[Rfam]
RNA sequence: GAACAGGUGAGAACCCUGUGAAUUUAAUAAUGUGUGAUUCACAGGGUUCUCAC
Numbered sequence: 001g002a003a004c005a006g007g008u009g010a011g012a013a014c015c016c017u018g019u020g021a022a023u024u025u026a027a028u029a030a031u032g033u034g035u036g037a038u039u040c041a042c043a044g045g046g047u048u049c050u051c052a053c
Base pairs, nucleotide, nucleotide: 007053008052009051010050011049012048013047014046015045016044017043018042019041020040021039022038023037024036

Record summary:
Plastid-ccsA-ndhD-1 3UTR RNA: a 53-nucleotide sequence from Dorcoceras hygrometricum. Rfam's curators write: Plastid-ccsA-ndhD-1 is a non-coding RNA (ncRNA) recognised in plastids. It was found in the three prime untranslated region (3UTR) of ccsA and ndhD genes, its 3UTR location suggests a role in transcript maturation. For this family Rfam cites "Retrograde signaling in plants: A critical review focusing on the GUN pathway and beyond" (Richter et al., Plant Commun, 2023). Pairs were carried over by alignment from the consensus structure, which was predicted with LocARNA. A search with the family's covariance model found it, with a score of 50 bits. Clan: Plastid-ccsA_ndhD 3UTR RNA clan.